Overview:
radC RNA: a 138-nucleotide sequence from Pseudomonas putida. It is one of the family's seed sequences.

RNA sequence: CCACUUGUGCAAUCGCUGGUUUUUCCGGCAUCCCAGGUAGCCAUAACCUUUGAGGCUACGUCACGCAUGUGAUGGUUACCCCGAAAUGCGAUUCGCGUUCGGCAGCUCGCAUGGUCACCGUUCCCCGGUGAUGAACGC
Number, nucleotide and partner (000 for none) at each position: 001c000002c000003a000004c000005u000006u000007g000008u000009g000010c000011a000012a000013u000014c000015g029016c028017u027018g026019g025020u000021u000022u000023u000024u000025c019026c018027g017028g016029c015030a000031u000032c000033c000034c000035a000036g000037g059038u058039a057040g056041c055042c054043a000044u000045a077046a076047c075048c074049u000050u000051u000052g000053a000054g042055g041056c040057u039058a038059c037060g073061u072062c071063a070064c069065g000066c000067a000068u000069g064070u063071g062072a061073u060074g048075g047076u046077u045078a000079c000080c000081c000082c000083g000084a000085a000086a000087u000088g000089c000090g000091a000092u000093u000094c000095g000096c000097g000098u000099u000100c000101g000102g000103c000104a000105g000106c000107u000108c137109g136110c000111a000112u000113g000114g132115u131116c130117a129118c128119c127120g126121u000122u000123c000124c000125c000126c120127g119128g118129u117130g116131a115132u114133g000134a000135a000136c109137g108138c000
Taxonomically the source falls in Pseudomonas putida (Bacteria, Pseudomonadati, Pseudomonadales, Pseudomonadaceae).